Description
The record is a 329-nucleotide RNA sequence from Gammaproteobacteria bacterium AqS3, which matches "Bacterial RNase P class A" in Rfam. The match comes from Rfam's covariance-model search (297 bits). Ribonuclease P (RNase P) is a ubiquitous endoribonuclease, found in archaea, bacteria and eukarya as well as chloroplasts and mitochondria. It is annotated as a ribozyme. The source organism's lineage runs through Bacteria, Pseudomonadati, Pseudomonadota and Gammaproteobacteria.
RNA sequence: CGAGUUGGUCGGGCAGCCGCUGGAGACAGAGGAAAGUCCGGACUCCGCAGGGCAGAACGCCAGAGAAAUUCUGGGGGGCGCGAGCCUACGGAAAGUGCAGCAGAAAAUAAACCGCCUCAUUGAGGUCAGGGUGAAAAGGUGCGGUAAGAGCGCACCGCGAGCGCCAGCAAUGGCGCCGGCAGGCAAACCCCGUUCGGAGCAAGGUCAAAUAGGGAUCCUGCAGUGCGGCCCGUACUGGAUCCGGGUAGACCGCAAGAGGGUCGCAGCGAUGCGGCUCCCAGGUGAAUGGCUGUCCACGACAGAAUCCGGCUUACAGGCCAACUCAAUUU
Numbered sequence: 001c002g003a004g005u006u007g008g009u010c011g012g013g014c015a016g017c018c019g020c021u022g023g024a025g026a027c028a029g030a031g032g033a034a035a036g037u038c039c040g041g042a043c044u045c046c047g048c049a050g051g052g053c054a055g056a057a058c059g060c061c062a063g064a065g066a067a068a069u070u071c072u073g074g075g076g077g078g079c080g081c082g083a084g085c086c087u088a089c090g091g092a093a094a095g096u097g098c099a100g101c102a103g104a105a106a107a108u109a110a111a112c113c114g115c116c117u118c119a120u121u122g123a124g125g126u127c128a129g130g131g132u133g134a135a136a137a138g139g140u141g142c143g144g145u146a147a148g149a150g151c152g153c154a155c156c157g158c159g160a161g162c163g164c165c166a167g168c169a170a171u172g173g174c175g176c177c178g179g180c181a182g183g184c185a186a187a188c189c190c191c192g193u194u195c196g197g198a199g200c201a202a203g204g205u206c207a208a209a210u211a212g213g214g215a216u217c218c219u220g221c222a223g224u225g226c227g228g229c230c231c232g233u234a235c236u237g238g239a240u241c242c243g244g245g246u247a248g249a250c251c252g253c254a255a256g257a258g259g260g261u262c263g264c265a266g267c268g269a270u271g272c273g274g275c276u277c278c279c280a281g282g283u284g285a286a287u288g289g290c291u292g293u294c295c296a297c298g299a300c301a302g303a304a305u306c307c308g309g310c311u312u313a314c315a316g317g318c319c320a321a322c323u324c325a326a327u328u329u
Base pairs, nucleotide, nucleotide: 002324003323004322005321006320007319008318009317010316011314012294013293014292015291016290017289018288020029021028022027034312035311036310038309039308040307041306042305043199044198045197046196050231051230052229053228055195056194057193058192059191060074061073062072063071064070075089076087077086078085079084090190091189095188096187097184098183112130113129114126115125116124117123118122138156139155140154141153142152143151157180158178159177161176162175163174164173165172166171203251204250205249206248213242214241215240216239217238218237222236223235224234225233226232258277259276260275261274262273263272264271265270